[Rfam]
RNA sequence: UUGCUUUAGGGAUAAACAACUCCUUGAUAAUUGAAUUCAUUCAUUUCUUAUGAUCAUCAUAGUGUUUGUGUUUUGCUCAUCAUUAUCGAAUGAUACAAUU
Dot-bracket structure: ....................................(((((........((((.((.................)).))))........))))).......